[Rfam]
RNA: Small nucleolar RNA snR80
Organism: Aureobasidium pullulans
RNA sequence: CUCACUUUGCCACACUCUGGACUCUGCCCAUAUUUACCGUGGCCCUGUCCAAUUUUCAGUGCAAAGAAGAUUACAUCUUCUGUCCUACUACUCACCGGCAUGUCUCCUCUUUCGGAGCGUGGGCAUAUCGGUCCAUGUUUAAGGUCAACAU
Numbered sequence: 001c002u003c004a005c006u007u008u009g010c011c012a013c014a015c016u017c018u019g020g021a022c023u024c025u026g027c028c029c030a031u032a033u034u035u036a037c038c039g040u041g042g043c044c045c046u047g048u049c050c051a052a053u054u055u056u057c058a059g060u061g062c063a064a065a066g067a068a069g070a071u072u073a074c075a076u077c078u079u080c081u082g083u084c085c086u087a088c089u090a091c092u093c094a095c096c097g098g099c100a101u102g103u104c105u106c107c108u109c110u111u112u113c114g115g116a117g118c119g120u121g122g123g124c125a126u127a128u129c130g131g132u133c134c135a136u137g138u139u140u141a142a143g144g145u146c147a148a149c150a151u
Stems, first nucleotide, its partner, number of pairs: 007064003018051005026043003082146001084144002095131004100126003104123003